[Rfam]
RNA sequence: GCUCCGUUGGAGUAGCGGAUAUCUCACCUGGCCCUCAACCAGGAGAUUGCCGGUUCGACCCCGGCACGGAGCA
Numbered sequence: 001g002c003u004c005c006g007u008u009g010g011a012g013u014a015g016c017g018g019a020u021a022u023c024u025c026a027c028c029u030g031g032c033c034c035u036c037a038a039c040c041a042g043g044a045g046a047u048u049g050c051c052g053g054u055u056c057g058a059c060c061c062c063g064g065c066a067c068g069g070a071g072c073a
Stems, first nucleotide, its partner, number of pairs: 001072007010025003027043005049065005
RNA: tRNA